[Rfam]
RNA sequence: ACGGUGUUCCGCUGCAACAAUCAAUUGUGUGCAAGAGCAUCUG
Numbered sequence: 001a002c003g004g005u006g007u008u009c010c011g012c013u014g015c016a017a018c019a020a021u022c023a024a025u026u027g028u029g030u031g032c033a034a035g036a037g038c039a040u041c042u043g
Stems, first nucleotide, its partner, number of pairs: 003041007013033004
This 43-nucleotide sequence from Planococcus massiliensis belongs to the Rfam family "Ribosomal protein L19 leader". Rfam links the family to the GO term regulation of gene expression. The family's consensus secondary structure was predicted with CMfinder. NCBI's taxonomy places the organism under Bacteria, Bacilli, Caryophanales, Caryophanaceae, Planococcus. The match comes from Rfam's covariance-model search (40 bits). From the family's description: This family is a putative r-protein leader autoregulatory structure found in B. subtilis and other low-GC Gram-positive bacteria. It is located in the 5' untranslated regions of mRNAs encoding ribosomal protein L19 (rplS).